[Rfam]
RNA: ACEA small nucleolar RNA U3
Organism: Coemansia spiralis
RNA sequence: CCGACUGUACUUUACAGGAUCAUGUAUACAGUUGAUAUUCAGUUCUUUGUUCAUCGAACUUAGACACACACUACACGCUGGAAGAUGACACACAGUGCGCCGUCCGUAAAGGGAGGUGUCGGGCCAUCUGCUUGCCCGUCGAUGAUCUUGCUUGUCUGCGCCCUCGCCGCGGCCUCUUUGGCUGCUGCGGGCUCAUGAGUGCGGCACAGCGAGGACGGUCGCACAUUCUGACAGCUG
Numbered sequence: 001c002c003g004a005c006u007g008u009a010c011u012u013u014a015c016a017g018g019a020u021c022a023u024g025u026a027u028a029c030a031g032u033u034g035a036u037a038u039u040c041a042g043u044u045c046u047u048u049g050u051u052c053a054u055c056g057a058a059c060u061u062a063g064a065c066a067c068a069c070a071c072u073a074c075a076c077g078c079u080g081g082a083a084g085a086u087g088a089c090a091c092a093c094a095g096u097g098c099g100c101c102g103u104c105c106g107u108a109a110a111g112g113g114a115g116g117u118g119u120c121g122g123g124c125c126a127u128c129u130g131c132u133u134g135c136c137c138g139u140c141g142a143u144g145a146u147c148u149u150g151c152u153u154g155u156c157u158g159c160g161c162c163c164u165c166g167c168c169g170c171g172g173c174c175u176c177u178u179u180g181g182c183u184g185c186u187g188c189g190g191g192c193u194c195a196u197g198a199g200u201g202c203g204g205c206a207c208a209g210c211g212a213g214g215a216c217g218g219u220c221g222c223a224c225a226u227u228c229u230g231a232c233a234g235c236u237g
Stems, first nucleotide, its partner, number of pairs: 001042001003040001009032003016027001018025001046068001048066004053061001077235004095224005100218006109149004120138003124134001153206004158202004
Dot-bracket structure: (.(.....(((....(.(......).)..))).......).)...(.((((.(.......).)))).)........((((..............(((((((((((...((((.......(((.(.........).))).......))))...((((.((((.....................................))))))))......)))))).))))).......))))..